[Rfam]
Shown here is a 133-nucleotide RNA sequence from Prolemur simus, a member of the family "Small nucleolar RNA SNORA31". The literature on the family includes a 2001 paper in EMBO J by Huttenhofer et al., "RNomics: an experimental approach that identifies 201 candidates for novel, small, non-messenger RNAs in mouse". The family's consensus secondary structure was predicted with RNAalifold. ACA31 (SNORA31) belongs to the H/ACA class of snoRNAs which are thought to guide the sites of modification of uridines to pseudouridines. ACA31 is predicted to guide the pseudouridylation of U3713 in 28S rRNA and U218 in 18S rRNA. This family includes the mouse homologue snoMBI-161. It is annotated as an H/ACA-box small nucleolar RNA. It scores 50 bits against the family's covariance model.
Nucleotides: 133
Base pairs, nucleotide, nucleotide: 002064003063004062005061006060007059008058012053013052016050017049018048019047020046024040025039026038027037028036077125079123080122082120086113087112088111089110091107092106093105094104095103
Number, partner (000 for none) and nucleotide at each position: 001000a002064u003063g004062c005061a006060u007059c008058u009000a010000u011000c012053u013052g014000a015000u016050g017049g018048a019047c020046c021000a022000a023000g024040a025039g026038c027037a028036g029000u030000u031000a032000c033000u034000g035000u036028c037027u038026g039025c040024u041000g042000c043000u044000g045000a046020g047019g048018u049017u050016u051000c052013c053012a054000c055000u056000a057000c058008a059007g060006a061005u062004g063003c064002a065000a066000a067000a068000a069000a070000a071000a072000a073000a074000a075000a076000a077125u078000g079123c080122c081000c082120u083000g084000g085000u086113g087112c088111u089110u090000u091107c092106u093105g094104u095103c096000u097000g098000a099000u100000u101000g102000c103095g104094g105093u106092g107091g108000c109000c110089a111088a112087g113086c114000u115000u116000a117000a118000a119000u120082g121000a122080g123079g124000g125077a126000a127000u128000a129000c130000a131000g132000g133000a